[Rfam]
This 83-nucleotide sequence from Artemisia annua belongs to the Rfam family "Small nucleolar RNA R38". Lineage of the source: Eukaryota > Magnoliopsida > Pentapetalae > campanulids > Artemisia. It scores 68 bits against the family's covariance model. About the family: snoR38 is a C/D box small nucleolar RNA conserved across yeast, human, Arabidopsis and rice. It is encoded in the intron of elongation factor-1 gamma in both pombe and cerevisiae. snoR38 guides the methylation of 2'-O-ribose sites in 28S rRNA.
RNA sequence: GGUUGUGAAUGAUGAGAUUAUAUAUUUACACAGUUAUCCCUGUCUGAUCAAAUCUUGAUGAGAAUUUGUGAUCUGACACAAUC
Numbered sequence: 001g002g003u004u005g006u007g008a009a010u011g012a013u014g015a016g017a018u019u020a021u022a023u024a025u026u027u028a029c030a031c032a033g034u035u036a037u038c039c040c041u042g043u044c045u046g047a048u049c050a051a052a053u054c055u056u057g058a059u060g061a062g063a064a065u066u067u068g069u070g071a072u073c074u075g076a077c078a079c080a081a082u083c
Base pairs, nucleotide, nucleotide: 001083002082003081004080005079006078007077